RNA: mir-395 microRNA precursor family
RNA sequence: GUUGUUCCUGGAGUUCCCUUGAACACUUCAUUGGGGAAAUUAUAAGGGUAGUUCAUAUGUACCUUAAUUUAUCCUACUGAAGUGUUUGGGGGAACUCUGGGUAUCAU
Dot-bracket structure: ....(.(((.((((((((((.(((((((((.((((.....................................)))).))))))).)))))))))))).))).)....